Rfam assigns this 535-nucleotide part of an RNA from Apis florea to the family "Eukaryotic large subunit ribosomal RNA". The sequence is in the family's curated seed alignment. Gene Ontology terms of the family: ribosome and structural constituent of ribosome. Lineage of the source: Eukaryota > Eumetazoa > Hymenoptera > Anthophila > Apis.
RNA sequence: GAAGACCCUGUUGAGCUUGACUCUAGUCUGGCAUUGUAAGGAGACAUGAGAGGUGUAGCAUAAGUGGGAGAUGGUAACAUCGCCGGUGAAAUACCACUACUUUCAUCGUUUCUUUACUUACUCGGUUGGGCGGAGCGCGUGCGCCGGUGUUUCGACCCGGUUGUCACGGUGUUCUAGAGCCAAGCGUGUAAGAGUGGUGUGAGGUCUUCGCGGCCGAUCGCCAAAAAUACUCCCGCGUGAUCCGAUUCGAGGACACUGCCAGGCGGGGAGUUUGACUGGGGCGGUACAUCUGUCAAAGAAUAACGCAGGUGUCCUAAGGCCAGCUCAGCGAGGACAGAAACCUCGCGUAGAGCAAAAGGGCAAAAGCUGGCUUGAUCUCGAUGUUCAGUACGCAUAGAGACUGCGAAAGCACGGCCUAUCGAUCCUUUUGGCUUGAAGAGUUUUCAGCAAGAGGUGUCAGAAAAGUUACCACAGGGAUAACUGGCUUGUGGCGGCCAAGCGUUCAUAGCGACGUCGCUUUUUGAUCCUUCGAUGU
Numbered sequence: 001g002a003a004g005a006c007c008c009u010g011u012u013g014a015g016c017u018u019g020a021c022u023c024u025a026g027u028c029u030g031g032c033a034u035u036g037u038a039a040g041g042a043g044a045c046a047u048g049a050g051a052g053g054u055g056u057a058g059c060a061u062a063a064g065u066g067g068g069a070g071a072u073g074g075u076a077a078c079a080u081c082g083c084c085g086g087u088g089a090a091a092u093a094c095c096a097c098u099a100c101u102u103u104c105a106u107c108g109u110u111u112c113u114u115u116a117c118u119u120a121c122u123c124g125g126u127u128g129g130g131c132g133g134a135g136c137g138c139g140u141g142c143g144c145c146g147g148u149g150u151u152u153c154g155a156c157c158c159g160g161u162u163g164u165c166a167c168g169g170u171g172u173u174c175u176a177g178a179g180c181c182a183a184g185c186g187u188g189u190a191a192g193a194g195u196g197g198u199g200u201g202a203g204g205u206c207u208u209c210g211c212g213g214c215c216g217a218u219c220g221c222c223a224a225a226a227a228u229a230c231u232c233c234c235g236c237g238u239g240a241u242c243c244g245a246u247u248c249g250a251g252g253a254c255a256c257u258g259c260c261a262g263g264c265g266g267g268g269a270g271u272u273u274g275a276c277u278g279g280g281g282c283g284g285u286a287c288a289u290c291u292g293u294c295a296a297a298g299a300a301u302a303a304c305g306c307a308g309g310u311g312u313c314c315u316a317a318g319g320c321c322a323g324c325u326c327a328g329c330g331a332g333g334a335c336a337g338a339a340a341c342c343u344c345g346c347g348u349a350g351a352g353c354a355a356a357a358g359g360g361c362a363a364a365a366g367c368u369g370g371c372u373u374g375a376u377c378u379c380g381a382u383g384u385u386c387a388g389u390a391c392g393c394a395u396a397g398a399g400a401c402u403g404c405g406a407a408a409g410c411a412c413g414g415c416c417u418a419u420c421g422a423u424c425c426u427u428u429u430g431g432c433u434u435g436a437a438g439a440g441u442u443u444u445c446a447g448c449a450a451g452a453g454g455u456g457u458c459a460g461a462a463a464a465g466u467u468a469c470c471a472c473a474g475g476g477a478u479a480a481c482u483g484g485c486u487u488g489u490g491g492c493g494g495c496c497a498a499g500c501g502u503u504c505a506u507a508g509c510g511a512c513g514u515c516g517c518u519u520u521u522u523g524a525u526c527c528u529u530c531g532a533u534g535u
Base pairs, nucleotide, nucleotide: 007475008474009473010472012471013470014467015466016465017464018463020271021270022269023268027263028262029261030260031259032258033257036117037116038115039114040113041112042111043110044109045108046106047105048104049103050102051101052100063098064097065096066095067094070081071080121251122250123249124248125247131244132243133242134241139167140166141165184238185237186236187235188234274287275285276284277283288310289309290308291307292306293305313414314413319371320370321369322368323367324366325351326350328346329345330344331343332342333341352361353360376400377399378398379397381395382394383393384392402411403410404409425453426452427451428450429449430448433447434446435445436444484525486523488522490518491517492516493515494514495513499509500508
Dot-bracket structure: ......((((.(((((((.((((...(((((((..(((((((((((((((((..........(((((..((........))............))))).))))))).))))))))))...(((((.....((((....(((.......................)))................(((((.............................................)))))..))))..))))).....)))))))....))))..((((.....))).)((((((...........))))))..((....((((((((.((((((.......))))))...))((......))....))))))....((((.((((.......)))).)))).(((....))).))..........((((((..((((.......)))))))))).........)))))..))))))........(.(.(.((((((...((.......))...))))))...)).)..........